[Rfam]
This 74-nucleotide sequence from Drosophila pseudoobscura belongs to the Rfam family "Small nucleolar RNA CD11". It is one of the family's seed sequences. Taxonomically the source falls in Drosophila pseudoobscura (Eukaryota, Opisthokonta, Mandibulata, Drosophila). Pairs were carried over by alignment from the consensus structure, which was predicted with ILM.
RNA sequence: UCAAUUCCAUGAUGAAUGAUUUAGCAGAAGAGUUCUUGAAGACUAUAUUCAUCACCCAAUCCUGAAAUUAUUCA
Numbered sequence: 001u002c003a004a005u006u007c008c009a010u011g012a013u014g015a016a017u018g019a020u021u022u023a024g025c026a027g028a029a030g031a032g033u034u035c036u037u038g039a040a041g042a043c044u045a046u047a048u049u050c051a052u053c054a055c056c057c058a059a060u061c062c063u064g065a066a067a068u069u070a071u072u073c074a
Stems, first nucleotide, its partner, number of pairs: 001070001003068001027035003